[Rfam]
Rfam assigns this 75-nucleotide RNA from Enterococcus columbae to the family "L17 ribosomal protein downstream element".
RNA sequence: AGAGUGUUAUGAUGUUGGAAGUUUAUACUUUCCGAGUCUAGCUCGUCGCUACCCUCUGAUGAGAGUCAUCAGGGG
Numbered sequence: 001a002g003a004g005u006g007u008u009a010u011g012a013u014g015u016u017g018g019a020a021g022u023u024u025a026u027a028c029u030u031u032c033c034g035a036g037u038c039u040a041g042c043u044c045g046u047c048g049c050u051a052c053c054c055u056c057u058g059a060u061g062a063g064a065g066u067c068a069u070c071a072g073g074g075g
Stems, first nucleotide, its partner, number of pairs: 002044004011038003017033005053075009

Pairs were carried over by alignment from the consensus structure, which is taken from published work.